[Rfam]
RNA sequence: AUGGCAGUGAUGAUUGGCGCAGGGGUACGGACCUCAGCUGGAUCAUGGGAGCUGAGUGCAAACUCUCAUUCCAGCAGCUGGCAUGUGGCUGGCUCCCUGGAAACAGGUUUGCAUGAGACUUUGCCAGAAACUGAGCCAU
Numbered sequence: 001a002u003g004g005c006a007g008u009g010a011u012g013a014u015u016g017g018c019g020c021a022g023g024g025g026u027a028c029g030g031a032c033c034u035c036a037g038c039u040g041g042a043u044c045a046u047g048g049g050a051g052c053u054g055a056g057u058g059c060a061a062a063c064u065c066u067c068a069u070u071c072c073a074g075c076a077g078c079u080g081g082c083a084u085g086u087g088g089c090u091g092g093c094u095c096c097c098u099g100g101a102a103a104c105a106g107g108u109u110u111g112c113a114u115g116a117g118a119c120u121u122u123g124c125c126a127g128a129a130a131c132u133g134a135g136c137c138a139u
Stems, first nucleotide, its partner, number of pairs: 001139005